[Rfam]
RNA sequence: UGUUAACGCGAGGAGACAGACAUGGGACUGACACGAUCCUUGAAUGUCCUUUUGAUCGGUGCGGCGUUUCUUUUCGUGCUGUCGAUGCUUUUCAUCUGACACAGGAUGCCGCUUCAAACGGACUAUGCCGAUACUCCUAGAUAGCGCAGAGUUCAUGAAACAGAAAAAGCGCAUGCCAACCACGGCAUGCGCUUU
Numbered sequence: 001u002g003u004u005a006a007c008g009c010g011a012g013g014a015g016a017c018a019g020a021c022a023u024g025g026g027a028c029u030g031a032c033a034c035g036a037u038c039c040u041u042g043a044a045u046g047u048c049c050u051u052u053u054g055a056u057c058g059g060u061g062c063g064g065c066g067u068u069u070c071u072u073u074u075c076g077u078g079c080u081g082u083c084g085a086u087g088c089u090u091u092u093c094a095u096c097u098g099a100c101a102c103a104g105g106a107u108g109c110c111g112c113u114u115c116a117a118a119c120g121g122a123c124u125a126u127g128c129c130g131a132u133a134c135u136c137c138u139a140g141a142u143a144g145c146g147c148a149g150a151g152u153u154c155a156u157g158a159a160a161c162a163g164a165a166a167a168a169g170c171g172c173a174u175g176c177c178a179a180c181c182a183c184g185g186c187a188u189g190c191g192c193u194u195u
Base pairs, nucleotide, nucleotide: 015048016047017046018045024040025039026038027037166195167194168193169192170191171190172189173188174187175186176185177184

Record summary: The record is a 195-nucleotide RNA sequence from Rhizobium metallidurans, which matches "Rhizobiales sRNA Atu_C9" in Rfam. For this family Rfam cites "Deep sequencing uncovers numerous small RNAs on all four replicons of the plant pathogen Agrobacterium tumefaciens" (Wilms et al., RNA Biol, 2012). Pairs were carried over by alignment from the consensus structure, which was predicted with WAR.